[Rfam]
RNA sequence: GAACAUCCUUCAAUAAAAACUUAUAUAAUAGCCAAAAUAAGGUUGGCGAGUAUCUACCCAGAACCGUAAAUUACUGGACUAUAAGUAAAGAAAUGAAUGAA
Numbered sequence: 001g002a003a004c005a006u007c008c009u010u011c012a013a014u015a016a017a018a019a020c021u022u023a024u025a026u027a028a029u030a031g032c033c034a035a036a037a038u039a040a041g042g043u044u045g046g047c048g049a050g051u052a053u054c055u056a057c058c059c060a061g062a063a064c065c066g067u068a069a070a071u072u073a074c075u076g077g078a079c080u081a082u083a084a085g086u087a088a089a090g091a092a093a094u095g096a097a098u099g100a101a
Base pairs, nucleotide, nucleotide: 019086020085021084022083023082024081025080029049031047032046033045034044035043058077059076060075061074062072063071
Purine riboswitch aptamer: a 101-nucleotide sequence from Carnobacterium divergens. It scores 73 bits against the family's covariance model. The literature on the family includes a 2004 paper in Nature by Batey et al., "Structure of a natural guanine-responsive riboswitch complexed with the metabolite hypoxanthine". Rfam links the family to the GO term purine nucleobase biosynthetic process. About the family: Riboswitches are metabolite binding domains within certain messenger RNAs that serve as precision sensors for their corresponding targets. Clan: Purine riboswitches.